The record is a 159-nucleotide RNA sequence from Aliidongia dinghuensis, which matches "FMN riboswitch aptamer (RFN element)" in Rfam.

RNA sequence: GCUUGUUCUCAGGGCAGGGUGCAAUUCCCGACCGGCGGUAAUCGUCCUCGCAAGAGGGCGGGAGCCCGCGAGCGCUUCGAGGCCUUGAAGGCCGCGAAGGUCAGCAGAUCCGGUGUGAAGCCGGGGCCGACGGUAUAGUCCGGAUGGAAGAGGACGAGU
Numbered sequence: 001g002c003u004u005g006u007u008c009u010c011a012g013g014g015c016a017g018g019g020u021g022c023a024a025u026u027c028c029c030g031a032c033c034g035g036c037g038g039u040a041a042u043c044g045u046c047c048u049c050g051c052a053a054g055a056g057g058g059c060g061g062g063a064g065c066c067c068g069c070g071a072g073c074g075c076u077u078c079g080a081g082g083c084c085u086u087g088a089a090g091g092c093c094g095c096g097a098a099g100g101u102c103a104g105c106a107g108a109u110c111c112g113g114u115g116u117g118a119a120g121c122c123g124g125g126g127c128c129g130a131c132g133g134u135a136u137a138g139u140c141c142g143g144a145u146g147g148a149a150g151a152g153g154a155c156g157a158g159u
Stems, first nucleotide, its partner, number of pairs: 003157008017029003031139002033129002035069004064127002072105002109125005131142003
The family's consensus secondary structure is taken from published work.
Taxonomically the source falls in Aliidongia (Bacteria, Pseudomonadati, Pseudomonadota, Alphaproteobacteria).
The match comes from Rfam's covariance-model search (113 bits).